[Rfam]
The family of this 80-nucleotide sequence from Danio rerio is "mir-190 microRNA precursor family".
Rfam's curators put it in the seed alignment.
Its Rfam clan is "mir-50 clan".
RNA sequence: CAGACUAUGUGAUAUGUUUGAUAUUCGGUUGCUUUCUUUAUAUCAUGUCAACUAAAUAUCAGACAUAUUCCUAUAGACUG
Numbered sequence: 001c002a003g004a005c006u007a008u009g010u011g012a013u014a015u016g017u018u019u020g021a022u023a024u025u026c027g028g029u030u031g032c033u034u035u036c037u038u039u040a041u042a043u044c045a046u047g048u049c050a051a052c053u054a055a056a057u058a059u060c061a062g063a064c065a066u067a068u069u070c071c072u073a074u075a076g077a078c079u080g
Base pairs, nucleotide, nucleotide: 005076006075007074008073009072011069012068013067014066015065016064017063018062019061020060021059022058023057024056025055027053028052029051030050031049